Source information:
Shown here is an 86-nucleotide RNA from Nisaea acidiphila, a member of the family "Glycine riboswitch aptamer". NCBI's taxonomy places the organism under Bacteria, Alphaproteobacteria, Rhodospirillales, Thalassobaculaceae, Nisaea.
[Rfam]
Nucleotides: 086
Stems, first nucleotide, its partner, number of pairs: 001086004011026004028076003032071001035070001037068001041063007
Number, partner (000 for none) and nucleotide at each position: 001086u002085c003084u004083g005000g006000a007000a008000a009000g010000c011026a012025g013024g014023c015000g016000g017000g018000a019000a020000a021000c022000c023014g024013c025012c026011u027000c028076a029075c030074c031000c032071a033000c034000g035070g036000u037068g038000a039000a040000a041063g042062c043061c044060c045059g046058g047057g048000a049000c050000a051000g052000a053000g054000u055000u056000c057047c058046c059045c060044g061043g062042g063041u064000g065000a066000a067000u068037c069000u070035c071032u072000c073000a074030g075029g076028u077000u078000a079000g080000c081000g082000a083004c084003a085002g086001a